Background:
The family of this 105-nucleotide sequence is "SAM-I/IV (S-adenosyl methionine) riboswitch aptamer".

RNA sequence: ACUCAGCAUCAAGAGAAGGGCCUCGGCCCGCACCAACCUGCCAACACCCGGCAAGGUGGUCGCCCGAAAGGGGAUGCGGCCAAACCGGCAACUAAAGGGCAGGCC
Numbered sequence: 001a002c003u004c005a006g007c008a009u010c011a012a013g014a015g016a017a018g019g020g021c022c023u024c025g026g027c028c029c030g031c032a033c034c035a036a037c038c039u040g041c042c043a044a045c046a047c048c049c050g051g052c053a054a055g056g057u058g059g060u061c062g063c064c065c066g067a068a069a070g071g072g073g074a075u076g077c078g079g080c081c082a083a084a085c086c087g088g089c090a091a092c093u094a095a096a097g098g099g100c101a102g103g104c105c
Stems, first nucleotide, its partner, number of pairs: 006077005015031001018029004032060003037056003040052003047098002079089003
Dot-bracket structure: .....(((((....(..((((....)))).)(((..((((((....[[.))).))).)))............))))).(((.....))).......]].......
Clan: SAM clan. Rfam 15.1 lists 567 matches to the family in 508 species.